[Rfam]
RNA sequence: AUCUUUAUGCUCGGGCAUUACGCAUAUCAGUGAGGAUUCGUCCGAGAUUGUGUAUUUGCUGGUUGAAAACUUAACCAUGACCGCUCUCUAUUGCCUUGUGGCUUGCCACAGUCGGCUUUAGAGGAAUUUUUGGAACCUCAAGAUCGAAGUGAG
Numbered sequence: 001a002u003c004u005u006u007a008u009g010c011u012c013g014g015g016c017a018u019u020a021c022g023c024a025u026a027u028c029a030g031u032g033a034g035g036a037u038u039c040g041u042c043c044g045a046g047a048u049u050g051u052g053u054a055u056u057u058g059c060u061g062g063u064u065g066a067a068a069a070c071u072u073a074a075c076c077a078u079g080a081c082c083g084c085u086c087u088c089u090a091u092u093g094c095c096u097u098g099u100g101g102c103u104u105g106c107c108a109c110a111g112u113c114g115g116c117u118u119u120a121g122a123g124g125a126a127u128u129u130u131u132g133g134a135a136c137c138u139c140a141a142g143a144u145c146g147a148a149g150u151g152a153g
Stems, first nucleotide, its partner, number of pairs: 020053005026048003034043003085124006093116003137153004
Overview
Rfam assigns this 153-nucleotide sequence from Yarrowia lipolytica to the family "U4 spliceosomal RNA". Rfam links the family to the GO terms U4 snRNP and spliceosomal tri-snRNP complex assembly. The family's RNA type in Rfam is spliceosomal small nuclear RNA. Pairs were carried over by alignment from the consensus structure, which is taken from published work.